[Rfam]
Nucleotides: 126
Base pairs, nucleotide, nucleotide: 007041008040009039012036013035014034015033016032017031046078047077048076049075050074051073052072053071054070055069094121095120096119098118099117100116101115
Number, partner (000 for none) and nucleotide at each position: 001000a002000c003000g004000c005000a006000a007041u008040g009039u010000g011000a012036g013035g014034u015033c016032c017031c018000u019000c020000u021000c022000c023000u024000c025000c026000u027000c028000c029000c030000u031017g032016g033015g034014a035013c036012c037000a038000a039009a040008c041007a042000u043000u044000c045000g046078c047077g048076g049075c050074g051073a052072u053071g054070c055069c056000u057000c058000u059000c060000c061000u062000c063000c064000u065000c066000c067000c068000u069055g070054g071053c072052a073051u074050c075049g076048c077047c078046g079000c080000a081000c082000c083000c084000u085000u086000a087000u088000c089000g090000u091000u092000u093000c094121g095120a096119g097000g098118c099117c100116c101115c102000u103000c104000u105000c106000c107000u108000c109000c110000u111000c112000c113000c114000u115101g116100g117099g118098g119096c120095u121094c122000u123000c124000g125000u126000u
The record is a 126-nucleotide RNA sequence from Antarctobacter heliothermus, which matches "Alphaproteobacterial ar14" in Rfam. Rfam classes the family as a small RNA. Smr14C2 was renamed NfeR1 (Nodule Formation Efficiency RNA) highly expressed in salt stress and during the symbiotic interaction on legume roots. Its family is annotated with biological process involved in symbiotic interaction in the Gene Ontology. The pairing is the family consensus, mapped onto this sequence.